A member of the RNA family "Plastid-rpl16 group II-D1 intron", 47 nucleotides long. Pairs were carried over by alignment from the consensus structure, which was predicted with LocARNA.
[Rfam]
RNA sequence: AAGAGCUUCGAGUCAAUAAAGACUAAGAAUAUUGACUUAAGAACCAA
Numbered sequence: 001a002a003g004a005g006c007u008u009c010g011a012g013u014c015a016a017u018a019a020a021g022a023c024u025a026a027g028a029a030u031a032u033u034g035a036c037u038u039a040a041g042a043a044c045c046a047a
Base pairs, nucleotide, nucleotide: 007041008040010038011037012036013035014034015033016032017031
Dot-bracket structure: ......((.((((((((.............)))))))).))......
Rfam describes the family as follows. Plastid-rpl16 is a non-coding RNA (ncRNA) recognised in plastids. It was recognised in and intronic region of a ribosome rpl16 gene.
Gene Ontology term of the family: Group II intron splicing.
A reference for the family is Richter et al. (2023), "Retrograde signaling in plants: A critical review focusing on the GUN pathway and beyond", Plant Commun.